[Rfam]
RNA sequence: CCCUUGUCCAAAGAAUCGCAGUCGAAGCUCACGCACGGAGACGCCCUUUGAGGGUGCUCUCGCUCCACACAAAGCUUUGGGAGAAAGUCCCCGGACAGCCCCGACCAGGGGAAUCCGCGUCAACGCGCCGCCAUAGCAGUUGCGCCGUCUCUUCGCCGUUCCCGGAUCCUCUGCACGCCUUGCCCCGUCUGCACCCGGCUGCUCCCUCUCUGUCCCACUCGGACCCCAGGCUGCUCACCACGGAUGAAGAUACGAGUCCGAGUAGCGCAAGGUUCGGGCUGUUGCGGAUCGGGUUGAAGCUGGGGAGGUGCUGGGAGACCGUGCAGGCAUCUGUGGCCGCUGGCUUACCAGCAGCGGCGUCGAGGUUCGUUCGUCGAGAAGAUAGUUAUGCGAUUGCCUUCACGUUCGUUGCGGACCAGAGGUAACUCGAUGGGGCUUAUUCUUGGUGCGAGG
Numbered sequence: 001c002c003c004u005u006g007u008c009c010a011a012a013g014a015a016u017c018g019c020a021g022u023c024g025a026a027g028c029u030c031a032c033g034c035a036c037g038g039a040g041a042c043g044c045c046c047u048u049u050g051a052g053g054g055u056g057c058u059c060u061c062g063c064u065c066c067a068c069a070c071a072a073a074g075c076u077u078u079g080g081g082a083g084a085a086a087g088u089c090c091c092c093g094g095a096c097a098g099c100c101c102c103g104a105c106c107a108g109g110g111g112a113a114u115c116c117g118c119g120u121c122a123a124c125g126c127g128c129c130g131c132c133a134u135a136g137c138a139g140u141u142g143c144g145c146c147g148u149c150u151c152u153u154c155g156c157c158g159u160u161c162c163c164g165g166a167u168c169c170u171c172u173g174c175a176c177g178c179c180u181u182g183c184c185c186c187g188u189c190u191g192c193a194c195c196c197g198g199c200u201g202c203u204c205c206c207u208c209u210c211u212g213u214c215c216c217a218c219u220c221g222g223a224c225c226c227c228a229g230g231c232u233g234c235u236c237a238c239c240a241c242g243g244a245u246g247a248a249g250a251u252a253c254g255a256g257u258c259c260g261a262g263u264a265g266c267g268c269a270a271g272g273u274u275c276g277g278g279c280u281g282u283u284g285c286g287g288a289u290c291g292g293g294u295u296g297a298a299g300c301u302g303g304g305g306a307g308g309u310g311c312u313g314g315g316a317g318a319c320c321g322u323g324c325a326g327g328c329a330u331c332u333g334u335g336g337c338c339g340c341u342g343g344c345u346u347a348c349c350a351g352c353a354g355c356g357g358c359g360u361c362g363a364g365g366u367u368c369g370u371u372c373g374u375c376g377a378g379a380a381g382a383u384a385g386u387u388a389u390g391c392g393a394u395u396g397c398c399u400u401c402a403c404g405u406u407c408g409u410u411g412c413g414g415a416c417c418a419g420a421g422g423u424a425a426c427u428c429g430a431u432g433g434g435g436c437u438u439a440u441u442c443u444u445g446g447u448g449c450g451a452g453g
Stems, first nucleotide, its partner, number of pairs: 002453006008446004014395006022081001023079006038061004085438003089435004115130001117128004299358004310352004335345004397422004
RNA: RNase MRP